Plastid-rpl20 3UTR RNA: an 81-nucleotide sequence from Musa balbisiana. The source organism's lineage runs through Eukaryota, Streptophytina, Petrosaviidae, Musaceae and Musa. It scores 56 bits against the family's covariance model. Rfam's curators write: Plastid rpl20 is a non-coding RNA (ncRNA) recognised in plastids. It was found in the three prime untranslated region (3UTR) of rpl20 gene, it presence in the 3UTR region sugest a role in transcript maduration.

[Rfam]
RNA sequence: AAAGACUCCCGGAGAAGAACUCCGGGAAAUAGAAUAAAAAUAAUUAAGAUAGUAAUAGGAAUGAAACGAAUAUGUUUCAAU
Numbered sequence: 001a002a003a004g005a006c007u008c009c010c011g012g013a014g015a016a017g018a019a020c021u022c023c024g025g026g027a028a029a030u031a032g033a034a035u036a037a038a039a040a041u042a043a044u045u046a047a048g049a050u051a052g053u054a055a056u057a058g059g060a061a062u063g064a065a066a067c068g069a070a071u072a073u074g075u076u077u078c079a080a081u
Base pairs, nucleotide, nucleotide: 007027008026009025010024011023012022013021014020064077065076066075067074